Rfam assigns this 78-nucleotide RNA sequence from Polypterus senegalus to the family "drz-agam-1 ribozyme". It scores 37 bits against the family's covariance model. NCBI's taxonomy places the organism under Eukaryota, Deuterostomia, Chordata, Craniata, Polypterus. On this family, see Webb et al., Science 2009: "Widespread occurrence of self-cleaving ribozymes". Rfam 15.1 lists 10,507 matches to the family in 53 species.

RNA sequence: GUCUGAUGGAAUCCCACCACCACCUCCUCCUGGUGUCGGACGGAAGCAAGGGCCAUAGGGACCUUGGCUAAUGGUGGG
Numbered sequence: 001g002u003c004u005g006a007u008g009g010a011a012u013c014c015c016a017c018c019a020c021c022a023c024c025u026c027c028u029c030c031u032g033g034u035g036u037c038g039g040a041c042g043g044a045a046g047c048a049a050g051g052g053c054c055a056u057a058g059g060g061a062c063c064u065u066g067g068c069u070a071a072u073g074g075u076g077g078g
Stems, first nucleotide, its partner, number of pairs: 013078007022034003045069003049065004054060001